A member of the RNA family "Putative RNA-dependent RNA polymerase ribosomal frameshift site" from Polerovirus PLRV, 39 nucleotides long. The sequence is in the family's curated seed alignment. For this family Rfam cites "Nucleotide sequence and organization of potato leafroll virus genomic RNA" (van der Wilk et al., FEBS Lett, 1989). It is annotated as a frameshift element. The source organism's lineage runs through Viruses, Pisuviricota, Sobelivirales, Polerovirus and Polerovirus PLRV.

RNA sequence: UUUAAAUGGGCGAGCGGCACCGCCCGCCAAAACAAACGG
Numbered sequence: 001u002u003u004a005a006a007u008g009g010g011c012g013a014g015c016g017g018c019a020c021c022g023c024c025c026g027c028c029a030a031a032a033c034a035a036a037c038g039g
Stems, first nucleotide, its partner, number of pairs: 014027004020039003
Dot-bracket structure: .............((((..[[[.)))).........]]]